[Rfam]
RNA: Plant signal recognition particle RNA
Organism: Cicer arietinum
RNA sequence: GCUGAGUUGGGUAGCUCCAACUUGUGACCCAAGCGGGGGCAACAAGGUGAUGGAACACGGCUUUGGCUUAUCAGGUUGGGCUGGUAGCUGCACUAUGCUGGUCUGCCCACUCCAAGUUGAGAGUUGAGUCAUGGGAUUUGGGCGAAGGCUUGGGUCUCUUGUCUCCUAGACUGGAGGGUACAGCGUGAGGCUGGACUCACAGAGCAGCGAAUACCUCCGGCUCUUGACAGUGGAGGGAUUACAGGCUGCUGCAAUACUAGCCCACAAAGCCUGCUGAGCAUAGCCCGUUGGACCAUCAUUUUU
Numbered sequence: 001g002c003u004g005a006g007u008u009g010g011g012u013a014g015c016u017c018c019a020a021c022u023u024g025u026g027a028c029c030c031a032a033g034c035g036g037g038g039g040c041a042a043c044a045a046g047g048u049g050a051u052g053g054a055a056c057a058c059g060g061c062u063u064u065g066g067c068u069u070a071u072c073a074g075g076u077u078g079g080g081c082u083g084g085u086a087g088c089u090g091c092a093c094u095a096u097g098c099u100g101g102u103c104u105g106c107c108c109a110c111u112c113c114a115a116g117u118u119g120a121g122a123g124u125u126g127a128g129u130c131a132u133g134g135g136a137u138u139u140g141g142g143c144g145a146a147g148g149c150u151u152g153g154g155u156c157u158c159u160u161g162u163c164u165c166c167u168a169g170a171c172u173g174g175a176g177g178g179u180a181c182a183g184c185g186u187g188a189g190g191c192u193g194g195a196c197u198c199a200c201a202g203a204g205c206a207g208c209g210a211a212u213a214c215c216u217c218c219g220g221c222u223c224u225u226g227a228c229a230g231u232g233g234a235g236g237g238a239u240u241a242c243a244g245g246c247u248g249c250u251g252c253a254a255u256a257c258u259a260g261c262c263c264a265c266a267a268a269g270c271c272u273g274c275u276g277a278g279c280a281u282a283g284c285c286c287g288u289u290g291g292a293c294c295a296u297c298a299u300u301u302u303u
Stems, first nucleotide, its partner, number of pairs: 001040003004023008028037003044302010056290002058287003061283002064280002068277003072273006078263009089253002099248007107237002110235005116228009126165003130161002133158011172219006184209003191202003